This 76-nucleotide sequence from Myotis myotis belongs to the Rfam family "mir-9229 microRNA precursor family". The source organism's lineage runs through Eukaryota, Eumetazoa, Bilateria, Dipnotetrapodomorpha and Myotis. The family has 7 seed sequences and 27,225 matches in Rfam 15.1.
RNA sequence: GAGACACCCCUCCGGGACAAGACUUGCUUCAGUGGGGCUUUGGUGCUCACUGAGUCUGCCCCCUGAGUUUGUCCUU
Numbered sequence: 001g002a003g004a005c006a007c008c009c010c011u012c013c014g015g016g017a018c019a020a021g022a023c024u025u026g027c028u029u030c031a032g033u034g035g036g037g038c039u040u041u042g043g044u045g046c047u048c049a050c051u052g053a054g055u056c057u058g059c060c061c062c063c064u065g066a067g068u069u070u071g072u073c074c075u076u
Base pairs, nucleotide, nucleotide: 001075003073004072005071006070009067011065014062015061016060018058019057021056022055023054029053030052031051032050033049034048035047036046037044038043